[Rfam]
RNA sequence: GGGUUACUCCUGCGCUUACGCGCCGUUUCGAUGAAGAUUCGCACCGCUAUCAAAACGGGUAACCCCUCCUUUCGGCAAGGAGUACUGUCAGAUCUAGUCUGAACUUCUACAAAUAAAGCAUGUAACGACUUACCUGUAUGCGGAAGCCGUUAGGCUGUUGCCGCACAAGUUGCUUUUGCAUCCCAGGGAAGGAUGCGACGUCCGUAU
Numbered sequence: 001g002g003g004u005u006a007c008u009c010c011u012g013c014g015c016u017u018a019c020g021c022g023c024c025g026u027u028u029c030g031a032u033g034a035a036g037a038u039u040c041g042c043a044c045c046g047c048u049a050u051c052a053a054a055a056c057g058g059g060u061a062a063c064c065c066c067u068c069c070u071u072u073c074g075g076c077a078a079g080g081a082g083u084a085c086u087g088u089c090a091g092a093u094c095u096a097g098u099c100u101g102a103a104c105u106u107c108u109a110c111a112a113a114u115a116a117a118g119c120a121u122g123u124a125a126c127g128a129c130u131u132a133c134c135u136g137u138a139u140g141c142g143g144a145a146g147c148c149g150u151u152a153g154g155c156u157g158u159u160g161c162c163g164c165a166c167a168a169g170u171u172g173c174u175u176u177u178g179c180a181u182c183c184c185a186g187g188g189a190a191g192g193a194u195g196c197g198a199c200g201u202c203c204g205u206a207u
Stems, first nucleotide, its partner, number of pairs: 001065007009058002012023004025056004030051004036045001068204001073157003079150001082148001087104002089101005106144003111139001175198002178196005184191001
The record is a 207-nucleotide RNA sequence from Methylococcus sp. EFPC2, which matches "Proteobacterial sRNA psRNA2" in Rfam. The base pairs follow the family's consensus structure. The source organism's lineage runs through Bacteria, Gammaproteobacteria, Methylococcales, Methylococcaceae and Methylococcus. For this family Rfam cites "Computational prediction and transcriptional analysis of sRNAs in Nitrosomonas europaea" (Gvakharia et al., FEMS Microbiol Lett, 2010). The match comes from Rfam's covariance-model search (112 bits). By type it is a small RNA.